[Rfam]
The family of this 119-nucleotide RNA from Apis mellifera is "U5 spliceosomal RNA". Rfam describes the family as follows. U5 RNA is a component of both types of known spliceosome. The precise function of this molecule is unknown, though it is known that the 5' loop is required for splice site selection and p220 binding, and that both the 3' stem-loop and the Sm site are important for Sm protein binding and cap methylation. The source organism's lineage runs through Eukaryota, Pancrustacea, Allotriocarida, Apidae and Apis.

RNA sequence: GUACUCUGGUUUCCCUUCAGACCACGUAUAAAUCUUUCGCCUUUUACUAAAGAUUUCCGUGGAGGGGAACAAUUGAUGAGUCUGAAUUAAUUUUUUGUGUGCCCGACAUAAGUUGGGCC
Numbered sequence: 001g002u003a004c005u006c007u008g009g010u011u012u013c014c015c016u017u018c019a020g021a022c023c024a025c026g027u028a029u030a031a032a033u034c035u036u037u038c039g040c041c042u043u044u045u046a047c048u049a050a051a052g053a054u055u056u057c058c059g060u061g062g063a064g065g066g067g068a069a070c071a072a073u074u075g076a077u078g079a080g081u082c083u084g085a086a087u088u089a090a091u092u093u094u095u096u097g098u099g100u101g102c103c104c105g106a107c108a109u110a111a112g113u114u115g116g117g118c119c
Stems, first nucleotide, its partner, number of pairs: 003081004009070011030056008099119001101118006